[Rfam]
RNA sequence: GGUGCGACCGGAUGAUGGUCCUCAACGACCGUUUUUUUAACACUGGUCGGUGGGACUUUCGUCCGUUUGUAAC
Numbered sequence: 001g002g003u004g005c006g007a008c009c010g011g012a013u014g015a016u017g018g019u020c021c022u023c024a025a026c027g028a029c030c031g032u033u034u035u036u037u038u039a040a041c042a043c044u045g046g047u048c049g050g051u052g053g054g055a056c057u058u059u060c061g062u063c064c065g066u067u068u069g070u071a072a073c
Stems, first nucleotide, its partner, number of pairs: 003071005009065007017057005023052002026049005

Rfam assigns this 73-nucleotide sequence from Lucilia cuprina to the family "mir-278 microRNA precursor family". A search with the family's covariance model found it, with a score of 86 bits.